[Rfam]
RNA sequence: CUGCGGUGAUGGCGUUUCUUAGGACACCUUUGGAUAAAAAAUGAAAACAGUUCAACUCUGAGCAGC
Numbered sequence: 001c002u003g004c005g006g007u008g009a010u011g012g013c014g015u016u017u018c019u020u021a022g023g024a025c026a027c028c029u030u031u032g033g034a035u036a037a038a039a040a041a042u043g044a045a046a047a048c049a050g051u052u053c054a055a056c057u058c059u060g061a062g063c064a065g066c
Base pairs, nucleotide, nucleotide: 001065002064003063004062

A member of the RNA family "Small nucleolar RNA SNORD58" from Chrysochloris asiatica, 66 nucleotides long. Lineage of the source: Eukaryota > Teleostomi > Afrosoricida > Chrysochloridae > Chrysochloris. The literature on the family includes a 2002 paper in Mol Cell Biol by Galardi et al., "Purified box C/D snoRNPs are able to reproduce site-specific 2'-O-methylation of target RNA in vitro". Rfam's curators write: snoRNA U58 is found in introns 1, 3 and 6 of the ribosomal protein RPL17 gene in humans. By type it is a C/D-box small nucleolar RNA. The family is grouped with related families in Rfam's "SNORD58 clan". Pairs were carried over by alignment from the consensus structure, which was predicted with PFOLD. The family has 33 seed sequences and 2,484 matches in Rfam 15.1.